[Rfam]
RNA sequence: UAACGAGAUUUUCCUCGGCAGUUAACUGCAGUCGGAUUUCUAAAACUUCGGCAGUUAACUGCCGAAGGGCAA
Numbered sequence: 001u002a003a004c005g006a007g008a009u010u011u012u013c014c015u016c017g018g019c020a021g022u023u024a025a026c027u028g029c030a031g032u033c034g035g036a037u038u039u040c041u042a043a044a045a046c047u048u049c050g051g052c053a054g055u056u057a058a059c060u061g062c063c064g065a066a067g068g069g070c071a072a
Stems, first nucleotide, its partner, number of pairs: 012068002015065015
This 72-nucleotide RNA from Medicago truncatula belongs to the Rfam family "MIR2629 microRNA precursor family". Pairs were carried over by alignment from the consensus structure, which was predicted with RNAalifold. Gene Ontology terms of the family: miRNA-mediated post-transcriptional gene silencing and RISC complex. The source organism's lineage runs through Eukaryota, Embryophyta, Euphyllophyta, rosids and Medicago. It scores 70 bits against the family's covariance model.